Background:
The family of this 115-nucleotide sequence from Medicago truncatula is "MIR2593 microRNA precursor family". Rfam 15.1 lists 1,262 matches to the family in 6 species. Taxonomically the source falls in Medicago (Eukaryota, Euphyllophyta, eudicotyledons, Hologalegina). The family's consensus secondary structure was predicted with RNAalifold. Its family is annotated with miRNA-mediated post-transcriptional gene silencing and RISC complex in the Gene Ontology.
RNA sequence: UUAUAAGCAAAAAUCAACGUUUUAGAUACAUUCAUUAAAUGAUGUAUAUAGUCUGUAUUAUAAACCGCAUACAUCAUUUAAUGAAUGAAUCUAAAAUGUAGAUUUUUGUUUAUAA
Numbered sequence: 001u002u003a004u005a006a007g008c009a010a011a012a013a014u015c016a017a018c019g020u021u022u023u024a025g026a027u028a029c030a031u032u033c034a035u036u037a038a039a040u041g042a043u044g045u046a047u048a049u050a051g052u053c054u055g056u057a058u059u060a061u062a063a064a065c066c067g068c069a070u071a072c073a074u075c076a077u078u079u080a081a082u083g084a085a086u087g088a089a090u091c092u093a094a095a096a097u098g099u100a101g102a103u104u105u106u107u108g109u110u111u112a113u114a115a
Stems, first nucleotide, its partner, number of pairs: 002114006009107005015101001017099009027089001029087016049067001051065002